[Rfam]
RNA: msiK RNA
Organism: Microbacterium schleiferi
RNA sequence: CCCGCUCAUCCUCACAACGGAUCGUCCGGCACGUACCUGCCGGUGAAGGAGAAGAAG
Numbered sequence: 001c002c003c004g005c006u007c008a009u010c011c012u013c014a015c016a017a018c019g020g021a022u023c024g025u026c027c028g029g030c031a032c033g034u035a036c037c038u039g040c041c042g043g044u045g046a047a048g049g050a051g052a053a054g055a056a057g
Base pairs, nucleotide, nucleotide: 009049010048012046013045014044026043027042028041029040030039031038
Dot-bracket structure: ........((.(((...........((((((......))))))))).))........